[Rfam]
RNA sequence: CAUGCAAGUGAUGAAGAGAAUGUAGACAGGGAUUCUGUACUCCUUUUUGAAUUUCCAAAAAGGGAUGAAGACUCAAUCUUAUUGGGAAUCUCUCUGAUGCUUU
Numbered sequence: 001c002a003u004g005c006a007a008g009u010g011a012u013g014a015a016g017a018g019a020a021u022g023u024a025g026a027c028a029g030g031g032a033u034u035c036u037g038u039a040c041u042c043c044u045u046u047u048u049g050a051a052u053u054u055c056c057a058a059a060a061a062g063g064g065a066u067g068a069a070g071a072c073u074c075a076a077u078c079u080u081a082u083u084g085g086g087a088a089u090c091u092c093u094c095u096g097a098u099g100c101u102u103u
Base pairs, nucleotide, nucleotide: 002102004100005099006098
RNA: Small nucleolar RNA R44/J54/Z268 family
Organism: Carex littledalei